Record summary:
A member of the RNA family "mir-156 microRNA precursor family" from Arachis duranensis, 84 nucleotides long. It scores 65 bits against the family's covariance model. NCBI's taxonomy places the organism under Eukaryota, Tracheophyta, Magnoliopsida, Fabales, Arachis. From the family's description: This family represents the plant microRNA (miRNA) precursor mir-156. Its family is annotated with RISC complex and miRNA-mediated post-transcriptional gene silencing in the Gene Ontology.
RNA sequence: UUGACAGAAGAGAGUGAGCACAUAGAAAAUAUAUUGUAUAAAUUUAUGCAAUUUUUUUUGUGUGCUCACUACUCUUUCUGUCGG
Numbered sequence: 001u002u003g004a005c006a007g008a009a010g011a012g013a014g015u016g017a018g019c020a021c022a023u024a025g026a027a028a029a030u031a032u033a034u035u036g037u038a039u040a041a042a043u044u045u046a047u048g049c050a051a052u053u054u055u056u057u058u059u060g061u062g063u064g065c066u067c068a069c070u071a072c073u074c075u076u077u078c079u080g081u082c083g084g
Base pairs, nucleotide, nucleotide: 001084002083003082004081005080006079007078008077009076010074011073012072013070014069015068016067017066018065019064020063021062023060024059025058